Rfam assigns this 102-nucleotide RNA from Abrus precatorius to the family "Small nucleolar RNA Z43".
The match comes from Rfam's covariance-model search (89 bits).
The source organism's lineage runs through Eukaryota, Embryophyta, Tracheophyta, Fabales and Abrus.
Its family is annotated with RNA processing and nucleolus in the Gene Ontology.

RNA sequence: GGACAGUGACGAUUUCGAUGUAAUUAAGGUCUCGUUCGUCGUAAUUGGCCUCAUUCGGCCUUGCCGACCAUCCUGAUAUAUCACCACCCAUAUUCUGAGUCC
Numbered sequence: 001g002g003a004c005a006g007u008g009a010c011g012a013u014u015u016c017g018a019u020g021u022a023a024u025u026a027a028g029g030u031c032u033c034g035u036u037c038g039u040c041g042u043a044a045u046u047g048g049c050c051u052c053a054u055u056c057g058g059c060c061u062u063g064c065c066g067a068c069c070a071u072c073c074u075g076a077u078a079u080a081u082c083a084c085c086a087c088c089c090a091u092a093u094u095c096u097g098a099g100u101c102c
Base pairs, nucleotide, nucleotide: 001102002101003100004099052057